[Rfam]
RNA sequence: UAGAGCUGGUAAUAAGACACUAUGCGUGCUUAGAUGCUCCUGAGUGGAUCACUCAGUUUGAGUCUAAGAACAACACAUAUAGCACCGCCGCUCUA
Numbered sequence: 001u002a003g004a005g006c007u008g009g010u011a012a013u014a015a016g017a018c019a020c021u022a023u024g025c026g027u028g029c030u031u032a033g034a035u036g037c038u039c040c041u042g043a044g045u046g047g048a049u050c051a052c053u054c055a056g057u058u059u060g061a062g063u064c065u066a067a068g069a070a071c072a073a074c075a076c077a078u079a080u081a082g083c084a085c086c087g088c089c090g091c092u093c094u095a
Stems, first nucleotide, its partner, number of pairs: 001095006009088002023077002026074002029068007040056006
RNA: DUF3800-V RNA